Shown here is a 173-nucleotide RNA from Oceanobacillus iheyensis, a member of the family "Group II catalytic intron D1-D4-3". On this family, see Bonen and Vogel, Trends Genet 2001: "The ins and outs of group II introns". Pairs were carried over by alignment from the consensus structure. It is one of the family's seed sequences.
RNA sequence: GCUAUCGUGAGGUAGUGGCUGAAGGAAGCCGGACGCAAACUCCUGAACUGACGAACAGAAAUUAGAUAGAAGGCUGGAUUAGGUCGGAUAAGUCUGCAUAUCAAGACAAAGUCCAAUACUGCCCGAAACCUAUACAGUAAAUCUAACAGUUAUACGGGAGGAAAGUUUUCACU
Numbered sequence: 001g002c003u004a005u006c007g008u009g010a011g012g013u014a015g016u017g018g019c020u021g022a023a024g025g026a027a028g029c030c031g032g033a034c035g036c037a038a039a040c041u042c043c044u045g046a047a048c049u050g051a052c053g054a055a056c057a058g059a060a061a062u063u064a065g066a067u068a069g070a071a072g073g074c075u076g077g078a079u080u081a082g083g084u085c086g087g088a089u090a091a092g093u094c095u096g097c098a099u100a101u102c103a104a105g106a107c108a109a110a111g112u113c114c115a116a117u118a119c120u121g122c123c124c125g126a127a128a129c130c131u132a133u134a135c136a137g138u139a140a141a142u143c144u145a146a147c148a149g150u151u152a153u154a155c156g157g158g159a160g161g162a163a164a165g166u167u168u169u170c171a172c173u
Stems, first nucleotide, its partner, number of pairs: 001016006028173001031170002035166002040160006046151005062146006073138003078133002081131004086114004092107004